The family of this 76-nucleotide RNA from Xenopus laevis is "mir-19 microRNA precursor family". A search with the family's covariance model found it, with a score of 69 bits. The family is grouped with related families in Rfam's "mir-19 clan". For this family Rfam cites "miRNPs: a novel class of ribonucleoproteins containing numerous microRNAs" (Mourelatos et al., Genes Dev, 2002).
[Rfam]
RNA sequence: GUCUUCUGUCAGUUUUGCAUAGUUGCACUACAAGAAAAAUGUAGUUGUGCAAAUCUAUGCAAAACUGAUGGCAGCC
Numbered sequence: 001g002u003c004u005u006c007u008g009u010c011a012g013u014u015u016u017g018c019a020u021a022g023u024u025g026c027a028c029u030a031c032a033a034g035a036a037a038a039a040u041g042u043a044g045u046u047g048u049g050c051a052a053a054u055c056u057a058u059g060c061a062a063a064a065c066u067g068a069u070g071g072c073a074g075c076c
Base pairs, nucleotide, nucleotide: 003074004073006071007070008069009068010067011066012065013064014063015062016061017060018059019058023052024051025050026049027048028047030045031044